[Rfam]
RNA sequence: GCACACAAAUCUACUUCAAUCCACGUGGCUUGAGAGGAAUUGAGGUGGAACUUAAACUAAAUUCCACCUCAAUCCCUCCCAAACCACGUGGAUUGGGGUGGAUUCGUGU
Numbered sequence: 001g002c003a004c005a006c007a008a009a010u011c012u013a014c015u016u017c018a019a020u021c022c023a024c025g026u027g028g029c030u031u032g033a034g035a036g037g038a039a040u041u042g043a044g045g046u047g048g049a050a051c052u053u054a055a056a057c058u059a060a061a062u063u064c065c066a067c068c069u070c071a072a073u074c075c076c077u078c079c080c081a082a083a084c085c086a087c088g089u090g091g092a093u094u095g096g097g098g099u100g101g102a103u104u105c106g107u108g109u
Base pairs, nucleotide, nucleotide: 004108005107006106008104009103010102011101012100013099014098016096017095018094019093020092021091022090023089024088025087026086027085028084030082031081032080035077036076037075039073040072041071042070043069045067046066047065
RNA: MIR5565 microRNA precursor family
Organism: Miscanthus lutarioriparius